[Rfam]
RNA: MIR398 microRNA precursor family
RNA sequence: GUACACCCCAGAGGAGUGGCUCCCUGAGAACACACGUGCAUUGGCUCUCACCUUUUGUAGUUCCACUGCACCUGUGUUCUCAGGUCACCCCUUUGGGGCACCC
Numbered sequence: 001g002u003a004c005a006c007c008c009c010a011g012a013g014g015a016g017u018g019g020c021u022c023c024c025u026g027a028g029a030a031c032a033c034a035c036g037u038g039c040a041u042u043g044g045c046u047c048u049c050a051c052c053u054u055u056u057g058u059a060g061u062u063c064c065a066c067u068g069c070a071c072c073u074g075u076g077u078u079c080u081c082a083g084g085u086c087a088c089c090c091c092u093u094u095g096g097g098g099c100a101c102c103c
Stems, first nucleotide, its partner, number of pairs: 007097002011093004016088004026081009